[Rfam]
RNA sequence: UAAGAAUGAUGAACCUUUCACUGGUCCGUGUUUCAGAUGAACUGUGAUGACGGUGAAGUUCUGACUUG
Numbered sequence: 001u002a003a004g005a006a007u008g009a010u011g012a013a014c015c016u017u018u019c020a021c022u023g024g025u026c027c028g029u030g031u032u033u034c035a036g037a038u039g040a041a042c043u044g045u046g047a048u049g050a051c052g053g054u055g056a057a058g059u060u061c062u063g064a065c066u067u068g
Stems, first nucleotide, its partner, number of pairs: 001068004
Dot-bracket structure: ((((............................................................))))
This 68-nucleotide sequence from Crocodylus porosus belongs to the Rfam family "Small nucleolar RNA SNORD18". It is annotated as a C/D-box small nucleolar RNA. The base pairs follow the family's consensus structure, which was predicted with PFOLD. The family has 16 seed sequences and 2,622 matches in Rfam 15.1.